Source information
Rfam assigns this 81-nucleotide RNA from Paragonimus skrjabini miyazakii to the family "tRNA". The literature on the family includes a 1993 paper in Trends Biochem Sci by Hou, "The tertiary structure of tRNA and the development of the genetic code". Transfer RNA (tRNA) molecules are approximately 80 nucleotides in length. Their secondary structure includes four short double-helical elements and three loops (D, anti-codon, and T loops). By type it is a transfer RNA. The organism belongs to Paragonimus, within Eukaryota.

[Rfam]
RNA sequence: GGCUUCGUAGCUCAGCUGGCAGAGCGCUUGCCGCAUUGAGGCAUGGUGUUUCUGUCGCUGGUUCGAAUCCAGCCGAAGCCG
Numbered sequence: 001g002g003c004u005u006c007g008u009a010g011c012u013c014a015g016c017u018g019g020c021a022g023a024g025c026g027c028u029u030g031c032c033g034c035a036u037u038g039a040g041g042c043a044u045g046g047u048g049u050u051u052c053u054g055u056c057g058c059u060g061g062u063u064c065g066a067a068u069c070c071a072g073c074c075g076a077a078g079c080c081g
Stems, first nucleotide, its partner, number of pairs: 001080007010025004027045001029043003057073005